[Rfam]
RNA sequence: GGGGAUUUAUGUUCGCAGGAGAGAUGGCACUAAUUGUACUGCAAUUGCGUCAACAAUUGUUGCCAUCUCUCCUGUGACCAAAAAUCUCU
Numbered sequence: 001g002g003g004g005a006u007u008u009a010u011g012u013u014c015g016c017a018g019g020a021g022a023g024a025u026g027g028c029a030c031u032a033a034u035u036g037u038a039c040u041g042c043a044a045u046u047g048c049g050u051c052a053a054c055a056a057u058u059g060u061u062g063c064c065a066u067c068u069c070u071c072c073u074g075u076g077a078c079c080a081a082a083a084a085u086c087u088c089u
Base pairs, nucleotide, nucleotide: 002088003087004086006084007083008082010080011079013077014076015075016074017073018072019071020070021069022068023067024066025065026064027063028062029061031059032058033057034056035055036054037053
Dot-bracket structure: .(((.(((.((.(((((((((((((((((.(((((((...............))))))).))))))))))))))))).)).))).))).
A member of the RNA family "MIR3627 microRNA precursor family" from Malus domestica, 89 nucleotides long. The sequence is in the family's curated seed alignment. Its family is annotated with RISC complex and miRNA-mediated post-transcriptional gene silencing in the Gene Ontology. The organism belongs to Malus, within Eukaryota. Rfam 15.1 lists 24 matches to the family in 10 species.